[Rfam]
RNA: TPP riboswitch aptamer (THI element)
Organism: Actinoplanes derwentensis
RNA sequence: GUAAUCCGACAGGGGAGCGCACAGCGCUGAGAGUGCGGGUAAAUCCGCAGACCCUCGCACCUGAUCUGGGUAAUGCCAGCGCAGGAAGUUCGGUCUUCUCCAGCC
Number, nucleotide and partner (000 for none) at each position: 001g000002u000003a000004a000005u000006c093007c092008g091009a090010c000011a055012g054013g053014g052015g000016a000017g027018c026019g025020c024021a000022c000023a000024g020025c019026g018027c017028u000029g000030a000031g000032a000033g000034u049035g048036c047037g046038g045039g000040u000041a000042a000043a000044u000045c038046c037047g036048c035049a034050g000051a000052c014053c013054c012055u011056c000057g000058c000059a000060c085061c084062u083063g082064a000065u000066c079067u078068g077069g076070g000071u000072a000073a000074u000075g000076c069077c068078a067079g066080c000081g000082c063083a062084g061085g060086a000087a000088g000089u000090u009091c008092g007093g006094u000095c000096u000097u000098c000099u000100c000101c000102a000103g000104c000105c000